[Rfam]
RNA sequence: CGGUUCCUUCGGGGCAGGGUGAGGCCCGGGCCGAGCCUUUGGUGCGGGCCAAUUCCCGACCGGUGGUGAUGCCGAAGGCCAAGCCUUCGGACGAGUCCACGAGCGGCUUCCGGCGACUCGGAAGCCGCAGGAGUUUGGUGCGAAUCCAACACCGACGGUACAGUCCGGAUGGGAGAAGGAAACG
Number, nucleotide and partner (000 for none) at each position: 001c000002g000003g000004u181005u180006c179007c178008u177009u176010c175011g000012g000013g000014g000015c000016a000017g057018g056019g055020u000021g000022a000023g000024g000025c000026c000027c000028g000029g000030g000031c000032c000033g000034a000035g000036c000037c000038u000039u000040u000041g000042g000043u000044g000045c000046g000047g000048g000049c000050c000051a000052a000053u000054u000055c019056c018057c017058g000059a164060c163061c154062g153063g100064u099065g098066g097067u000068g000069a000070u000071g000072c000073c000074g000075a000076a000077g000078g000079c000080c000081a000082a000083g000084c000085c000086u000087u000088c000089g000090g000091a000092c000093g000094a000095g152096u151097c066098c065099a064100c063101g000102a000103g128104c127105g126106g125107c124108u000109u000110c000111c000112g000113g000114c000115g000116a000117c000118u000119c000120g000121g000122a000123a000124g107125c106126c105127g104128c103129a000130g000131g000132a000133g150134u000135u149136u148137g147138g146139u000140g000141c000142g000143a000144a000145u000146c138147c137148a136149a135150c133151a096152c095153c062154g061155a000156c167157g166158g165159u000160a000161c000162a000163g060164u059165c158166c157167g156168g000169a000170u000171g000172g000173g000174a000175g010176a009177a008178g007179g006180a005181a004182a000183c000184g000
This 184-nucleotide RNA sequence from Hydrogenibacillus schlegelii belongs to the Rfam family "FMN riboswitch aptamer (RFN element)". NCBI's taxonomy places the organism under Bacteria, Bacillati, Bacillota, Bacilli, Hydrogenibacillus. The RFN element is a highly conserved domain that is found frequently in the 5'-untranslated regions of prokaryotic mRNAs that encode for flavin mononucleotide (FMN) biosynthesis and transport proteins. This element is a metabolite-dependent riboswitch that directly binds FMN in the absence of proteins. In Bacillus subtilis, the riboswitch most likely controls gene expression by causing premature transcription termination within the 5' untranslated region of the ribDEAHT operon and precluding access to the ribosome-binding site of ypaA mRNA.The FMN riboswitch structure, reported in present an FMN-bound six-stem junction, adopts a butterfly-like scaffold, stapled together by opposingly directed but nearly identically folded peripheral domains.